Shown here is an 85-nucleotide sequence from Schaedlerella arabinosiphila, a member of the family "GA-cis RNA". The organism belongs to Schaedlerella, within Bacteria. Pairs were carried over by alignment from the consensus structure, which is taken from published work.

[Rfam]
RNA sequence: AGAAGGAGGAAGGCAAAUGCGGAGCAUUUUUAAAAUGCCUUCCGACGACUUGCCCUCGAACGAAAGUGAGGGGGCGCUACAUUAU
Numbered sequence: 001a002g003a004a005g006g007a008g009g010a011a012g013g014c015a016a017a018u019g020c021g022g023a024g025c026a027u028u029u030u031u032a033a034a035a036u037g038c039c040u041u042c043c044g045a046c047g048a049c050u051u052g053c054c055c056u057c058g059a060a061c062g063a064a065a066g067u068g069a070g071g072g073g074g075c076g077c078u079a080c081a082u083u084a085u
Stems, first nucleotide, its partner, number of pairs: 008043006016028004052075003056071002060067002